[Rfam]
RNA sequence: AACUUAUCAAGAGAGACCGAGGGGUAGGCCCUAUGACGUCCGGCAACCCCCAAUUGGGAAGGUGCCAAGUCCUGCGGAAUGUGAAAGCGUUCCGGAAGAUAAGUC
Numbered sequence: 001a002a003c004u005u006a007u008c009a010a011g012a013g014a015g016a017c018c019g020a021g022g023g024g025u026a027g028g029c030c031c032u033a034u035g036a037c038g039u040c041c042g043g044c045a046a047c048c049c050c051c052a053a054u055u056g057g058g059a060a061g062g063u064g065c066c067a068a069g070u071c072c073u074g075c076g077g078a079a080u081g082u083g084a085a086a087g088c089g090u091u092c093c094g095g096a097a098g099a100u101a102a103g104u105c
Stems, first nucleotide, its partner, number of pairs: 002104007013041001015040003021031003025074004042066004047062002049058003070097001075094006
Dot-bracket structure: .(((((((....(.(((...(((.[[[[)))......))))((((.(((((....)))..))))))...(]]]]((((((........))))))..)))))))).